[Rfam]
RNA sequence: UGACGGAAGAACACCACAAGGAGUGGAGUGUGCGGCUUAAUUUGACUCAACGCGGGACAACUUACCAUAGCCAAUGAUCAAGUAAGCGUAGUACGCGAUAGAUCAGAGAGUGGUGCAUGGCCGUUAUCAACUAGUGAGGUGACUUUUGGGUUAAGUCCGUUAAGUAGUGAGAUCCCUAGGGUUGGCUAAAUAUGUGAUGCUUAUGUGUUAUGUGUUGAAGCUAUAUCGACAGGAGCGAGAAGCGCCGGAAGGAAGGGGCAAGAACAGGUCAGUGAUGCCCUUAGAUGGUAUGGGCUGCACGCGCACUACAGUGGUUACAAUAGAUAUUUUAUAGAAGUAAAUGUAAUCGAGAGGGAAUGAGCACUGUAAUGUGCACAGGAACGAGGAAUUGCUAGUAAUCGUUGCCUCAUUAAGGAGCGAUGAAUAUGUCCCUGUUCUUUGUACACACCGCCCGUCGUUAUCGAAGAUGGAACCAGGUGCGAACAAGCGAAAGCGAGUGAGUGCAGGGUUCUAGAUCUGAUACAAGUCGUAACAAGGCAGCUGUAGGAGAACCUGUAGCUGGAUCAACA
Numbered sequence: 001u002g003a004c005g006g007a008a009g010a011a012c013a014c015c016a017c018a019a020g021g022a023g024u025g026g027a028g029u030g031u032g033c034g035g036c037u038u039a040a041u042u043u044g045a046c047u048c049a050a051c052g053c054g055g056g057a058c059a060a061c062u063u064a065c066c067a068u069a070g071c072c073a074a075u076g077a078u079c080a081a082g083u084a085a086g087c088g089u090a091g092u093a094c095g096c097g098a099u100a101g102a103u104c105a106g107a108g109a110g111u112g113g114u115g116c117a118u119g120g121c122c123g124u125u126a127u128c129a130a131c132u133a134g135u136g137a138g139g140u141g142a143c144u145u146u147u148g149g150g151u152u153a154a155g156u157c158c159g160u161u162a163a164g165u166a167g168u169g170a171g172a173u174c175c176c177u178a179g180g181g182u183u184g185g186c187u188a189a190a191u192a193u194g195u196g197a198u199g200c201u202u203a204u205g206u207g208u209u210a211u212g213u214g215u216u217g218a219a220g221c222u223a224u225a226u227c228g229a230c231a232g233g234a235g236c237g238a239g240a241a242g243c244g245c246c247g248g249a250a251g252g253a254a255g256g257g258g259c260a261a262g263a264a265c266a267g268g269u270c271a272g273u274g275a276u277g278c279c280c281u282u283a284g285a286u287g288g289u290a291u292g293g294g295c296u297g298c299a300c301g302c303g304c305a306c307u308a309c310a311g312u313g314g315u316u317a318c319a320a321u322a323g324a325u326a327u328u329u330u331a332u333a334g335a336a337g338u339a340a341a342u343g344u345a346a347u348c349g350a351g352a353g354g355g356a357a358u359g360a361g362c363a364c365u366g367u368a369a370u371g372u373g374c375a376c377a378g379g380a381a382c383g384a385g386g387a388a389u390u391g392c393u394a395g396u397a398a399u400c401g402u403u404g405c406c407u408c409a410u411u412a413a414g415g416a417g418c419g420a421u422g423a424a425u426a427u428g429u430c431c432c433u434g435u436u437c438u439u440u441g442u443a444c445a446c447a448c449c450g451c452c453c454g455u456c457g458u459u460a461u462c463g464a465a466g467a468u469g470g471a472a473c474c475a476g477g478u479g480c481g482a483a484c485a486a487g488c489g490a491a492a493g494c495g496a497g498u499g500a501g502u503g504c505a506g507g508g509u510u511c512u513a514g515a516u517c518u519g520a521u522a523c524a525a526g527u528c529g530u531a532a533c534a535a536g537g538c539a540g541c542u543g544u545a546g547g548a549g550a551a552c553c554u555g556u557a558g559c560u561g562g563a564u565c566a567a568c569a
Stems, first nucleotide, its partner, number of pairs: 001445002003442003007439007016429002020392001022390003025309001027307008035298002041056004065293005071287001075105005086096004109281002112279004118275001119273001120269003123265003130168004135163001136145003149158002174257004220227001230248001232246002235243002313348006353382001358377002361374004398421006405414001450533001453529002456526001459522005465516001468513007477504004483498002487494002538561010
RNA: Microsporidia small subunit ribosomal RNA, nucleotides 869 to 1437